[Rfam]
RNA sequence: AUAUGCUUGGCUCCUCAUAUGCCAUCCACGGAGAUCCUCGAGAUGGUCGAUGAGCUUAGUGUAUGGCAUACAGGGAGCCAGGCAUAU
Numbered sequence: 001a002u003a004u005g006c007u008u009g010g011c012u013c014c015u016c017a018u019a020u021g022c023c024a025u026c027c028a029c030g031g032a033g034a035u036c037c038u039c040g041a042g043a044u045g046g047u048c049g050a051u052g053a054g055c056u057u058a059g060u061g062u063a064u065g066g067c068a069u070a071c072a073g074g075g076a077g078c079c080a081g082g083c084a085u086a087u
Stems, first nucleotide, its partner, number of pairs: 001087006008080007018070007027061003
mir-160 microRNA precursor family: an 87-nucleotide RNA sequence from Brassica oleracea. Gene Ontology terms of the family: miRNA-mediated post-transcriptional gene silencing and RISC complex. NCBI's taxonomy places the organism under Eukaryota, Streptophytina, Gunneridae, Pentapetalae, Brassica oleracea. The match comes from Rfam's covariance-model search (52 bits). The literature on the family includes a 2002 paper in Cell by Rhoades et al., "Prediction of plant microRNA targets".